[Rfam]
RNA sequence: GUUGGAUCCAUGAUGUUAAUUUACAAACUGCGUUAUCUAUCUGAGCUUCCUUUUUAAAGGGAUUGAAGAUAUUUUCCAUACUGAUAUCCAUU
Numbered sequence: 001g002u003u004g005g006a007u008c009c010a011u012g013a014u015g016u017u018a019a020u021u022u023a024c025a026a027a028c029u030g031c032g033u034u035a036u037c038u039a040u041c042u043g044a045g046c047u048u049c050c051u052u053u054u055u056a057a058a059g060g061g062a063u064u065g066a067a068g069a070u071a072u073u074u075u076c077c078a079u080a081c082u083g084a085u086a087u088c089c090a091u092u
Base pairs, nucleotide, nucleotide: 001092003090004089005088006087007086
Source information: Rfam assigns this 92-nucleotide RNA from Hibiscus syriacus to the family "Small nucleolar RNA snoR27". Rfam classes the family as a C/D-box small nucleolar RNA. Rfam 15.1 lists 649 matches to the family in 212 species. A search with the family's covariance model found it, with a score of 66 bits. On this family, see Brown et al., RNA 2001: "Multiple snoRNA gene clusters from Arabidopsis".